[Rfam]
RNA sequence: AGAGGUCACAAGUUUGAGACCAUAGCAGAAGUGCUCAUGACACAGCUCUGUCACAUCCCAAACAAAUCUGCAAAUUCUGCU
Dot-bracket structure: ...............[[[.[...((((((((((.......))).]]]]...((.((.........)).))....)))))))
Numbered sequence: 001a002g003a004g005g006u007c008a009c010a011a012g013u014u015u016g017a018g019a020c021c022a023u024a025g026c027a028g029a030a031g032u033g034c035u036c037a038u039g040a041c042a043c044a045g046c047u048c049u050g051u052c053a054c055a056u057c058c059c060a061a062a063c064a065a066a067u068c069u070g071c072a073a074a075u076u077c078u079g080c081u
Stems, first nucleotide, its partner, number of pairs: 016048003020045001024081007031043003052070002055067002